[Rfam]
RNA sequence: UGCGAUCUGCGCCCCUCGACAGGAUACACGAACCCUGGGGCCUUAAUUGAUCCAAAGGGUGCUGUCCCUGACCGGACUCGUGGGUCCGGACAUAUGGCGCCCACCUACGUUGUAGGUUCCCAGGAUCAAUAAAUCCAUCGGUUGCCGUGGAUCGCAC
Numbered sequence: 001u002g003c004g005a006u007c008u009g010c011g012c013c014c015c016u017c018g019a020c021a022g023g024a025u026a027c028a029c030g031a032a033c034c035c036u037g038g039g040g041c042c043u044u045a046a047u048u049g050a051u052c053c054a055a056a057g058g059g060u061g062c063u064g065u066c067c068c069u070g071a072c073c074g075g076a077c078u079c080g081u082g083g084g085u086c087c088g089g090a091c092a093u094a095u096g097g098c099g100c101c102c103a104c105c106u107a108c109g110u111u112g113u114a115g116g117u118u119c120c121c122a123g124g125a126u127c128a129a130u131a132a133a134u135c136c137a138u139c140g141g142u143u144g145c146c147g148u149g150g151a152u153c154g155c156a157c
Stems, first nucleotide, its partner, number of pairs: 002155010012144001015141001017140003032126001034124002037121003040117003057102003061098005072089005
6S / SsrS RNA: a 157-nucleotide sequence. From the family's description: E. coli 6S RNA was the first non coding RNA to be sequenced, but its function was unknown until recently. It scores 76 bits against the family's covariance model.